[Rfam]
RNA sequence: AACUUCCGUAUCCGUGCUGAGAUUUCAUCACACCAGACUACAAGGACUGAUGAGACUCCCAAGAUAAGUGUAGCG
Number, nucleotide and partner (000 for none) at each position: 001a000002a000003c073004u072005u000006c070007c068008g000009u066010a065011u064012c063013c000014g000015u061016g060017c000018u000019g058020a057021g056022a000023u055024u054025u053026c052027a051028u050029c049030a000031c000032a000033c000034c000035a000036g000037a000038c000039u000040a000041c000042a000043a000044g000045g000046a000047c000048u000049g029050a028051u027052g026053a025054g024055a023056c021057u020058c019059c000060c016061a015062a000063g012064a011065u010066a009067a000068g007069u000070g006071u000072a004073g003074c000075g000
mir-3492 microRNA precursor family: a 75-nucleotide sequence from Schistosoma mansoni. NCBI's taxonomy places the organism under Eukaryota, Opisthokonta, Protostomia, Platyhelminthes, Schistosoma. Its family is annotated with miRNA-mediated post-transcriptional gene silencing and RISC complex in the Gene Ontology. The family has 2 seed sequences and 21,496 matches in Rfam 15.1. It scores 65 bits against the family's covariance model.